[Rfam]
This 47-nucleotide RNA from Sphaeramia orbicularis belongs to the Rfam family "Histone 3' UTR stem-loop". Rfam links the family to the GO term mRNA 3'-end processing by stem-loop binding and cleavage. The mRNAs of metazoan histone genes lack a poly-A tail. 3' end processing occurs at a site between a highly conserved stem-loop (modelled by this family) and a purine rich region around 20 nts downstream (the histone downstream element, or HDE). The stem-loop is bound by a 31 kDa stem-loop binding protein (SLBP - also termed the histone hairpin binding protein, or HBP). Together with U7 snRNA binding of the HDE, SLBP binding nucleate s the formation of the processing complex. The histone 3' UTR stem-loop is also involved in nucleocytoplasmic transport of the mRNA, and in stability regulation and translation efficiency in the cytoplasm. A search with the family's covariance model found it, with a score of 40 bits. The organism belongs to Sphaeramia, within Eukaryota.
RNA sequence: CAAAAGGCUCUUUUCAGAGCCACACAAUUCAGUUUAAGAGAAUAUUU
Numbered sequence: 001c002a003a004a005a006g007g008c009u010c011u012u013u014u015c016a017g018a019g020c021c022a023c024a025c026a027a028u029u030c031a032g033u034u035u036a037a038g039a040g041a042a043u044a045u046u047u
Stems, first nucleotide, its partner, number of pairs: 006021006